[Rfam]
RNA sequence: CGCAAUCCCACCUGAAACUGGGUCUCAACCUCUGAUGUUUAAGAAGGUGAGCAAAGUCUCAGGUGUCAUUGCGG
Numbered sequence: 001c002g003c004a005a006u007c008c009c010a011c012c013u014g015a016a017a018c019u020g021g022g023u024c025u026c027a028a029c030c031u032c033u034g035a036u037g038u039u040u041a042a043g044a045a046g047g048u049g050a051g052c053a054a055a056g057u058c059u060c061a062g063g064u065g066u067c068a069u070u071g072c073g074g
Stems, first nucleotide, its partner, number of pairs: 002072005009065007016057001019054001024051004029047003
Rfam assigns this 74-nucleotide sequence from Acanthocheilonema viteae to the family "mir-87 microRNA precursor family". On this family, see Sempere et al., Dev Biol 2003: "Temporal regulation of microRNA expression in Drosophila melanogaster mediated by hormonal signals and broad-Complex gene activity". The family's consensus secondary structure was predicted with RNAalifold. Gene Ontology terms of the family: RISC complex and miRNA-mediated post-transcriptional gene silencing.